Notes:
Small nucleolar RNA SNORA28: a 125-nucleotide sequence from Pogona vitticeps. A search with the family's covariance model found it, with a score of 89 bits. ACA28 is a member of the H/ACA class of snoRNA that guide the sites of modification of uridines to pseudouridines. NCBI's taxonomy places the organism under Eukaryota, Euteleostomi, Sauropsida, Iguania, Pogona. Rfam links the family to the GO terms RNA processing and nucleolus. On this family, see Huttenhofer et al., EMBO J 2001: "RNomics: an experimental approach that identifies 201 candidates for novel, small, non-messenger RNAs in mouse".
RNA sequence: AAGCAACACUCUGUGGCAGAUAACCUAAUUGUCUACCUCAAUUUAAGCUUGCUACAGUAAAUAUAGUCUACCCUAUUCCAGUGAUUUCAGUGUGUGAGGUCAUCUGUUAUAUAGACGCUAACAUC
Numbered sequence: 001a002a003g004c005a006a007c008a009c010u011c012u013g014u015g016g017c018a019g020a021u022a023a024c025c026u027a028a029u030u031g032u033c034u035a036c037c038u039c040a041a042u043u044u045a046a047g048c049u050u051g052c053u054a055c056a057g058u059a060a061a062u063a064u065a066g067u068c069u070a071c072c073c074u075a076u077u078c079c080a081g082u083g084a085u086u087u088c089a090g091u092g093u094g095u096g097a098g099g100u101c102a103u104c105u106g107u108u109a110u111a112u113a114g115a116c117g118c119u120a121a122c123a124u125c
Base pairs, nucleotide, nucleotide: 009047010046012040013039015037018034019033020032021031022030066116067115068114069113070112074111075110076109079106080105081104087099088098